[Rfam]
RNA sequence: GUAGGUAAGGGAAGUCGGCAUACUUGAUCCGUAACCUCGGGAAAAGGAUUGGCUCUGAGGGCUGAGUUAAACAGGCUGAGGGAAGAAACGUGCCUACUUGGUUUGCAGCUGGUGUGAACACUGGCUCUUAUCCGCUGCUGUUGUACACGCGCCCUCGUGGUGUGUUGUUGAUGGCAGUGGUGAGUUUAUGUGAUUACACUGGAGGUGAGCAGAGUGGGUCGUGGGCGACCUCAGCUAUGCAUACGCCUUGGUUGGCGGCUGUUCUGCGCAUGCGUUUCUCGCAAGGGUUGCGUGUGUGUUGGGGCAGUCGUUCGGCCUCGGGGGGUAUUUGUUUGACAUGAAACAGCCAACUCAGAACUGGCACGGACCUGGGGAAUCCGACUGUCUAAUUAAAACAAAGCAUUGCGAUGUCUGCUGAUCGGUUUUGACGCAAUGUGAUUUCUGCCCAGUGCUCUGAAUGUCAAAGUGAAGAAAUUCAACCAAGCGCGGGUAAACGGCGGGAGUAACUAUGACUCUCUUAAGGUAGCCAAAUGCCUCGUCAUCUAAUUAGUGACGCGCAUGAAUGGAUUAACGAGAUUCCUACUGUCCCUAUCUACUA
Numbered sequence: 001g002u003a004g005g006u007a008a009g010g011g012a013a014g015u016c017g018g019c020a021u022a023c024u025u026g027a028u029c030c031g032u033a034a035c036c037u038c039g040g041g042a043a044a045a046g047g048a049u050u051g052g053c054u055c056u057g058a059g060g061g062c063u064g065a066g067u068u069a070a071a072c073a074g075g076c077u078g079a080g081g082g083a084a085g086a087a088a089c090g091u092g093c094c095u096a097c098u099u100g101g102u103u104u105g106c107a108g109c110u111g112g113u114g115u116g117a118a119c120a121c122u123g124g125c126u127c128u129u130a131u132c133c134g135c136u137g138c139u140g141u142u143g144u145a146c147a148c149g150c151g152c153c154c155u156c157g158u159g160g161u162g163u164g165u166u167g168u169u170g171a172u173g174g175c176a177g178u179g180g181u182g183a184g185u186u187u188a189u190g191u192g193a194u195u196a197c198a199c200u201g202g203a204g205g206u207g208a209g210c211a212g213a214g215u216g217g218g219u220c221g222u223g224g225g226c227g228a229c230c231u232c233a234g235c236u237a238u239g240c241a242u243a244c245g246c247c248u249u250g251g252u253u254g255g256c257g258g259c260u261g262u263u264c265u266g267c268g269c270a271u272g273c274g275u276u277u278c279u280c281g282c283a284a285g286g287g288u289u290g291c292g293u294g295u296g297u298g299u300u301g302g303g304g305c306a307g308u309c310g311u312u313c314g315g316c317c318u319c320g321g322g323g324g325g326u327a328u329u330u331g332u333u334u335g336a337c338a339u340g341a342a343a344c345a346g347c348c349a350a351c352u353c354a355g356a357a358c359u360g361g362c363a364c365g366g367a368c369c370u371g372g373g374g375a376a377u378c379c380g381a382c383u384g385u386c387u388a389a390u391u392a393a394a395a396c397a398a399a400g401c402a403u404u405g406c407g408a409u410g411u412c413u414g415c416u417g418a419u420c421g422g423u424u425u426u427g428a429c430g431c432a433a434u435g436u437g438a439u440u441u442c443u444g445c446c447c448a449g450u451g452c453u454c455u456g457a458a459u460g461u462c463a464a465a466g467u468g469a470a471g472a473a474a475u476u477c478a479a480c481c482a483a484g485c486g487c488g489g490g491u492a493a494a495c496g497g498c499g500g501g502a503g504u505a506a507c508u509a510u511g512a513c514u515c516u517c518u519u520a521a522g523g524u525a526g527c528c529a530a531a532u533g534c535c536u537c538g539u540c541a542u543c544u545a546a547u548u549a550g551u552g553a554c555g556c557g558c559a560u561g562a563a564u565g566g567a568u569u570a571a572c573g574a575g576a577u578u579c580c581u582a583c584u585g586u587c588c589c590u591a592u593c594u595a596c597u598a
Stems, first nucleotide, its partner, number of pairs: 001596007009588003026050005035040001051359002054356006060348005066337009075235003079231003089223004093218007101210006109202009119192002360364001372581007379573002383397003400436008412422003440567003444498003449495002451491004456487001459486003467478004499517006518522001538554005

The record is a 598-nucleotide part of an RNA from Vidua macroura, which matches "Eukaryotic large subunit ribosomal RNA" in Rfam. Lineage of the source: Eukaryota > Bilateria > Euteleostomi > Amniota > Vidua. The match comes from Rfam's covariance-model search (2892 bits).